[Rfam]
RNA sequence: GCUUAUUCUCAGGGCGGGGUGAAAGUCCCCACCGGCGGUAAACCACAUCUUCUUUGGCGGAACGCAUUUCUGCCAUAGUGGGAGCCCGCGAGCGCUCAAACUUUGCAGUUUGAGGUCAGCAGAUCCGGUUAGAUCCCGGAGCCGACGGUUAUAGUCCGGAUGGGAGAGAGUAACG
Dot-bracket structure: ..((((((((......(((.......))).[[((((((...............................................))))..((.........................))...(((((.......)))))..)).(((.....]]))).......))))))))..
RNA: FMN riboswitch aptamer (RFN element)
Organism: Ewingella americana